[Rfam]
RNA sequence: GUUUCGGUGAGAUAUGUUUGAUAUUCUUGGUUGUUAAGAUUUCAAUUAUCACCCAGGAAUCAAACAUAUUAUUACCGUGAC
Numbered sequence: 001g002u003u004u005c006g007g008u009g010a011g012a013u014a015u016g017u018u019u020g021a022u023a024u025u026c027u028u029g030g031u032u033g034u035u036a037a038g039a040u041u042u043c044a045a046u047u048a049u050c051a052c053c054c055a056g057g058a059a060u061c062a063a064a065c066a067u068a069u070u071a072u073u074a075c076c077g078u079g080a081c
Stems, first nucleotide, its partner, number of pairs: 005077005011070012024057002029054002032051002
Overview:
The record is an 81-nucleotide RNA from Anopheles gambiae, which matches "mir-190 microRNA precursor family" in Rfam. The base pairs follow the family's consensus structure, which was predicted with RNAalifold. Rfam's curators put it in the seed alignment.